[Rfam]
Nucleotides: 106
Stems, first nucleotide, its partner, number of pairs: 008022001010020003058106007066099003070095003076089003
Number, partner (000 for none) and nucleotide at each position: 001000u002000c003000g004000a005000a006000g007000u008022u009000u010020c011019a012018u013000c014000u015000c016000a017000a018012a019011u020010g021000u022008a023000g024000a025000u026000u027000u028000u029000g030000u031000c032000u033000u034000a035000g036000u037000g038000u039000a040000u041000a042000c043000g044000a045000a046000u047000c048000g049000u050000u051000g052000a053000a054000a055000a056000c057000a058106a059105g060104u061103a062102g063101c064100a065000a066099u067098a068097c069000c070095c071094c072093a073000u074000g075000u076089c077088u078087u079000g080000c081000u082000u083000u084000u085000a086000c087078a088077a089076g090000c091000a092000a093072u094071g095070g096000g097068g098067u099066a100064u101063g102062c103061u104060a105059c106058u

A member of the RNA family "Plastid-psbA-1 3UTR RNA" from Musa balbisiana, 106 nucleotides long. Plastid psbA-1 is a non-coding RNA (ncRNA) present in plastids. Taxonomically the source falls in Musa (Eukaryota, Streptophytina, Spermatophyta, Petrosaviidae). The family's RNA type in Rfam is cis-regulatory element.